Ribosomal protein L20 leader: a 139-nucleotide RNA from Listeria ivanovii. Rfam's curators put it in the seed alignment. It is annotated as a cis-regulatory leader. NCBI's taxonomy places the organism under Bacteria, Bacillati, Bacilli, Caryophanales, Listeria. This family is a putative r-protein leader autoregulatory structure found in B. subtilis and other low-GC Gram-positive bacteria. It is located in the 5' untranslated regions of mRNAs encoding initiation factor 3 followed by ribosomal proteins L35 and L20 (infC-rpmI-rplT). A Rho-independent transcription terminator structure that is probably involved in regulation is included at the 3' end.

RNA sequence: ACAAGAAAGAAGAAGCAACCCGCUUCUCGCCUCGUUAACAUGGAUGUUUUCAGGCAAAAAAUUCAAACUUUCGUCGCGUUACUUGCGCGACUUUGAAUGUGCGGGAUUGCUGAAAAGCAGCCCGUUUUUUUAUGGCCUC
Numbered sequence: 001a002c003a004a005g006a007a008a009g010a011a012g013a014a015g016c017a018a019c020c021c022g023c024u025u026c027u028c029g030c031c032u033c034g035u036u037a038a039c040a041u042g043g044a045u046g047u048u049u050u051c052a053g054g055c056a057a058a059a060a061a062u063u064c065a066a067a068c069u070u071u072c073g074u075c076g077c078g079u080u081a082c083u084u085g086c087g088c089g090a091c092u093u094u095g096a097a098u099g100u101g102c103g104g105g106a107u108u109g110c111u112g113a114a115a116a117g118c119a120g121c122c123c124g125u126u127u128u129u130u131u132a133u134g135g136c137c138u139c
Stems, first nucleotide, its partner, number of pairs: 011027006029055003037048003101125005107120005
Dot-bracket structure: ..........((((((.....)))))).(((.....(((......)))....))).............................................(((((.(((((....))))))))))..............